[Rfam]
RNA sequence: AGCUGGUUCGAAGGUAGUGAGUUAUCUCGAUUGUUCACCAUUACAGAUUGAACUUUGUUCUACUCUUUCAUCCCUUCUCACUAUAUUUGACUAGUCUAAA
Numbered sequence: 001a002g003c004u005g006g007u008u009c010g011a012a013g014g015u016a017g018u019g020a021g022u023u024a025u026c027u028c029g030a031u032u033g034u035u036c037a038c039c040a041u042u043a044c045a046g047a048u049u050g051a052a053c054u055u056u057g058u059u060c061u062a063c064u065c066u067u068u069c070a071u072c073c074c075u076u077c078u079c080a081c082u083a084u085a086u087u088u089g090a091c092u093a094g095u096c097u098a099a100a
Stems, first nucleotide, its partner, number of pairs: 002095007010088002014084008029065002033061001

A member of the RNA family "Y RNA" from Prolemur simus, 100 nucleotides long.
Lineage of the source: Eukaryota > Teleostomi > Sarcopterygii > Tetrapoda > Prolemur.
The base pairs follow the family's consensus structure, which is taken from published work.
The family's RNA type in Rfam is non-coding RNA gene.
The match comes from Rfam's covariance-model search (46 bits).